[Rfam]
RNA sequence: UAGGGGGAGGUUGGCUGCAUCACUGGUACUGAUGUAAUGGCUGUUCACAGUACCAGAAAUGCCGCUCCCUUCCCCCUACA
Numbered sequence: 001u002a003g004g005g006g007g008a009g010g011u012u013g014g015c016u017g018c019a020u021c022a023c024u025g026g027u028a029c030u031g032a033u034g035u036a037a038u039g040g041c042u043g044u045u046c047a048c049a050g051u052a053c054c055a056g057a058a059a060u061g062c063c064g065c066u067c068c069c070u071u072c073c074c075c076c077u078a079c080a
Base pairs, nucleotide, nucleotide: 001078002077003076004075005074007072008071009070010069013066014065015064017062018061019060020059023056024055025054026053027052028051029050030049031048
mir-9186 microRNA precursor family: an 80-nucleotide sequence from Eptesicus fuscus. Rfam 15.1 lists 143 matches to the family in 7 species. Rfam links the family to the GO terms RISC complex and miRNA-mediated post-transcriptional gene silencing.